[Rfam]
RNA sequence: GUGCCGCGCGAGAACUCCGGCUGUGACCUGUGUACACUUUAUCCAAAUCACAUCACAGUCUGAGUUCUUGCUUGGAGG
Numbered sequence: 001g002u003g004c005c006g007c008g009c010g011a012g013a014a015c016u017c018c019g020g021c022u023g024u025g026a027c028c029u030g031u032g033u034a035c036a037c038u039u040u041a042u043c044c045a046a047a048u049c050a051c052a053u054c055a056c057a058g059u060c061u062g063a064g065u066u067c068u069u070g071c072u073u074g075g076a077g078g
Stems, first nucleotide, its partner, number of pairs: 004075003009070009021058006030051003
Dot-bracket structure: ...(((..(((((((((...((((((...(((................))).))))))...)))))))))..)))...
This 78-nucleotide RNA from Aedes aegypti belongs to the Rfam family "mir-11 microRNA precursor family".
Rfam 15.1 lists 138 matches to the family in 136 species.
The organism belongs to Stegomyia, within Eukaryota.
The family is grouped with related families in Rfam's "mir-6 clan".
The literature on the family includes a 2010 paper in Insect Mol Biol by Chen et al., "Next-generation small RNA sequencing for microRNAs profiling in the honey bee Apis mellifera".